c-di-AMP riboswitch aptamer (ydaO/yuaA leader): a 175-nucleotide RNA from Cylindrospermum sp. NIES-4074. It scores 63 bits against the family's covariance model. Lineage of the source: Bacteria > Bacillati > Cyanobacteriota > Nostocaceae > Cylindrospermum.
[Rfam]
RNA sequence: GAAACAUUUAUGCAUCUGGGUAAGCCGGGAGCGGAGGAACCAAGUGUGGGGCGAAUCUCCAAAAAGGGUCAAAGAAAGAGUGCGAAGCAUCAAUUUCCAACUUUACCCUUGGGGAGAAGGACAUCUCUCAGUCCUAGUCCGUCAGCUAACUUCGUCGGCAUUGAGAGGAGACUGA
Dot-bracket structure: ....(.......................).((((((....((....))(((.....((((....................................................))))..((((........))))...))).........))))))....................
Numbered sequence: 001g002a003a004a005c006a007u008u009u010a011u012g013c014a015u016c017u018g019g020g021u022a023a024g025c026c027g028g029g030a031g032c033g034g035a036g037g038a039a040c041c042a043a044g045u046g047u048g049g050g051g052c053g054a055a056u057c058u059c060c061a062a063a064a065a066g067g068g069u070c071a072a073a074g075a076a077a078g079a080g081u082g083c084g085a086a087g088c089a090u091c092a093a094u095u096u097c098c099a100a101c102u103u104u105a106c107c108c109u110u111g112g113g114g115a116g117a118a119g120g121a122c123a124u125c126u127c128u129c130a131g132u133c134c135u136a137g138u139c140c141g142u143c144a145g146c147u148a149a150c151u152u153c154g155u156c157g158g159c160a161u162u163g164a165g166a167g168g169a170g171a172c173u174g175a
Stems, first nucleotide, its partner, number of pairs: 005029001031155006041048002049140003057116004119134004